The record is a 136-nucleotide RNA sequence from Pararhizobium mangrovi, which matches "Alphaproteobacterial sRNA ar7" in Rfam. The pairing is the family consensus, mapped onto this sequence. Taxonomically the source falls in Pararhizobium (Bacteria, Pseudomonadota, Hyphomicrobiales, Rhizobiaceae). The literature on the family includes a 2012 paper in RNA Biol by del Val et al., "A survey of sRNA families in alpha-proteobacteria".

RNA sequence: CAUCGUUUGCCGCCCUUCCGGCGAUAAGGCCAGUCCCCCGCCCUCGCCGGAUCUGGAACGAAGGUCUCCCCCUCUCCGGACCUUGCGUUCCAAAAGAGUGCCGCCGUGGUGCCCCCUCCAGCCACGGCGGCUUUUU
Numbered sequence: 001c002a003u004c005g006u007u008u009g010c011c012g013c014c015c016u017u018c019c020g021g022c023g024a025u026a027a028g029g030c031c032a033g034u035c036c037c038c039c040g041c042c043c044u045c046g047c048c049g050g051a052u053c054u055g056g057a058a059c060g061a062a063g064g065u066c067u068c069c070c071c072c073u074c075u076c077c078g079g080a081c082c083u084u085g086c087g088u089u090c091c092a093a094a095a096g097a098g099u100g101c102c103g104c105c106g107u108g109g110u111g112c113c114c115c116c117u118c119c120a121g122c123c124a125c126g127g128c129g130g131c132u133u134u135u136u
Base pairs, nucleotide, nucleotide: 017051018050019049020048021047022046023045028042029041030040056090057089058088059087060086061084062083063082064081065080066079098132101130102129103128104127105126106125107124108123109122110121